RNA sequence: GAGGGCAGGGGAAGCACGGCUUCGCAGCGCACAGACGGGGAGCUUGCUCCCAUCCAUGCUGCGGGGAAAGUCCCCGUGCCUUGGGGCAGAGAGUGUCAGCGGGAGACCGCUAGGCCCCAGCCAUGGUUCCGGCGGUGAGGCUUUGAGCGGAGCCACAGUUCCAGACCUGGGGCCAGUCGCAGCAGCACAGGCAUGCCGUGAGCGUUCGAUGAGAUCGCCAACUGAAUGGGGCUCACUCUCCCCAUGCCCU
Numbered sequence: 001g002a003g004g005g006c007a008g009g010g011g012a013a014g015c016a017c018g019g020c021u022u023c024g025c026a027g028c029g030c031a032c033a034g035a036c037g038g039g040g041a042g043c044u045u046g047c048u049c050c051c052a053u054c055c056a057u058g059c060u061g062c063g064g065g066g067a068a069a070g071u072c073c074c075c076g077u078g079c080c081u082u083g084g085g086g087c088a089g090a091g092a093g094u095g096u097c098a099g100c101g102g103g104a105g106a107c108c109g110c111u112a113g114g115c116c117c118c119a120g121c122c123a124u125g126g127u128u129c130c131g132g133c134g135g136u137g138a139g140g141c142u143u144u145g146a147g148c149g150g151a152g153c154c155a156c157a158g159u160u161c162c163a164g165a166c167c168u169g170g171g172g173c174c175a176g177u178c179g180c181a182g183c184a185g186c187a188c189a190g191g192c193a194u195g196c197c198g199u200g201a202g203c204g205u206u207c208g209a210u211g212a213g214a215u216c217g218c219c220a221a222c223u224g225a226a227u228g229g230g231g232c233u234c235a236c237u238c239u240c241c242c243c244a245u246g247c248c249c250u
Stems, first nucleotide, its partner, number of pairs: 002250005008243005015200006022064007038051005069233002072231004085097004098111005113174003117170004124163003131154003140148003202218003206214002
RNA: RNase MRP
Organism: Polarella glacialis